RNA: ZMP/ZTP riboswitch aptamer (pfl RNA motif)
Organism: Thermotalea metallivorans
RNA sequence: UUACAGUCACAUGACUGGCGGAAGUGGAGUUUACCACAGGGAGUGUGAUUGAGUCAGAAGCGCCGACCGCCUGGGCAAAAAAU
Numbered sequence: 001u002u003a004c005a006g007u008c009a010c011a012u013g014a015c016u017g018g019c020g021g022a023a024g025u026g027g028a029g030u031u032u033a034c035c036a037c038a039g040g041g042a043g044u045g046u047g048a049u050u051g052a053g054u055c056a057g058a059a060g061c062g063c064c065g066a067c068c069g070c071c072u073g074g075g076c077a078a079a080a081a082a083u
Base pairs, nucleotide, nucleotide: 004051005050006049007048008047009046010045011044012043015040016039017071018070019069020068021067024037025036026035027034062076063075064074